The family of this 46-nucleotide RNA sequence from Nocardioides thalensis is "L31-Actinobacteria ribosomal protein leader". It is annotated as a cis-regulatory leader. NCBI's taxonomy places the organism under Bacteria, Actinomycetota, Actinomycetes, Propionibacteriales, Nocardioides. The base pairs follow the family's consensus structure, which is taken from published work.

[Rfam]
RNA sequence: UCGGCCCCGGUUCACGCCUGCAUCCCGCACGGCGACCCGGGAGACC
Numbered sequence: 001u002c003g004g005c006c007c008c009g010g011u012u013c014a015c016g017c018c019u020g021c022a023u024c025c026c027g028c029a030c031g032g033c034g035a036c037c038c039g040g041g042a043g044a045c046c
Base pairs, nucleotide, nucleotide: 003046004045007040008039009038010037015034016033017032018031019029020028021027